RNA sequence: CCUGAGAUGAAAGUCACAUCCUGACGUGGUUCCUUGUCCUGGUGUGCCAGAGUUCUCAAAAAGGAUCUGCUGGUCUUGAUUUACAGGUGGGGGCCGUCAGUGCCCCUAUAUGCUGCCCAGGUCAGAAACAUGU
Numbered sequence: 001c002c003u004g005a006g007a008u009g010a011a012a013g014u015c016a017c018a019u020c021c022u023g024a025c026g027u028g029g030u031u032c033c034u035u036g037u038c039c040u041g042g043u044g045u046g047c048c049a050g051a052g053u054u055c056u057c058a059a060a061a062a063g064g065a066u067c068u069g070c071u072g073g074u075c076u077u078g079a080u081u082u083a084c085a086g087g088u089g090g091g092g093g094c095c096g097u098c099a100g101u102g103c104c105c106c107u108a109u110a111u112g113c114u115g116c117c118c119a120g121g122u123c124a125g126a127a128a129c130a131u132g133u
Stems, first nucleotide, its partner, number of pairs: 003058004007053002013047001015046006023038004070125007078117001082115002084112002087109001089107006
Shown here is a 133-nucleotide RNA from Nannospalax galili, a member of the family "Small nucleolar RNA SNORA3/SNORA45 family". Pairs were carried over by alignment from the consensus structure, which was predicted with RNAalifold. The family is grouped with related families in Rfam's "SNORA3 clan". Rfam describes the family as follows. The members of this family belong to the H/ACA class of snoRNAs which are thought to guide the sites of modification of uridines to pseudouridines. This family includes mouse snoMBI-28 and human homologues ACA3 (SNORA3) and ACA3-2 (SNORA45). Both ACA3 and ACA3-2 share the same host gene. The family's RNA type in Rfam is H/ACA-box small nucleolar RNA.